RNA sequence: AAUCGAACACAGGGGCGCUGGGAGCGUAGUUUCCCGGCUGAGAUGUAGAAGCAGACAUGCUGCUUUCGGUCCCUAGAACCUGAUCCGGGUAAUGCCGGCGUAGGAAGUGGAAGAGAGAUCUUG
Number, nucleotide and partner (000 for none) at each position: 001a000002a000003u000004c000005g000006a000007a000008c109009a108010c107011a074012g073013g072014g071015g000016c068017g038018c037019u036020g035021g034022g033023a032024g031025c000026g000027u000028a000029g000030u000031u024032u023033c022034c021035c020036g019037g018038c017039u000040g000041a000042g000043a000044u000045g067046u000047a065048g064049a000050a000051g000052c000053a000054g000055a000056c000057a000058u000059g000060c000061u000062g000063c000064u048065u047066u000067c045068g016069g000070u000071c014072c013073c012074u011075a000076g000077a000078a000079c104080c103081u102082g101083a000084u000085c098086c097087g096088g095089g000090u000091a000092a000093u000094g000095c088096c087097g086098g085099c000100g000101u082102a081103g080104g079105a000106a000107g010108u009109g008110g000111a000112a000113g000114a000115g000116a000117g000118a000119u000120c000121u000122u000123g000
Source information: The family of this 123-nucleotide RNA sequence from Colidextribacter sp. OB.20 is "TPP riboswitch aptamer (THI element)". A search with the family's covariance model found it, with a score of 60 bits.